[Rfam]
RNA sequence: GCCCGGUUAUCUCAAUCGGUAGAGUGUCAGACUCUUAAUCAUUGAAAAUCUGAACGUUGCGGGUUCGAUCCCCGCAUCGGGCU
Numbered sequence: 001g002c003c004c005g006g007u008u009a010u011c012u013c014a015a016u017c018g019g020u021a022g023a024g025u026g027u028c029a030g031a032c033u034c035u036u037a038a039u040c041a042u043u044g045a046a047a048a049u050c051u052g053a054a055c056g057u058u059g060c061g062g063g064u065u066c067g068a069u070c071c072c073c074g075c076a077u078c079g080g081g082c083u
Stems, first nucleotide, its partner, number of pairs: 001082007011024003027053005059075005
RNA: tRNA
Organism: Talaromyces atroroseus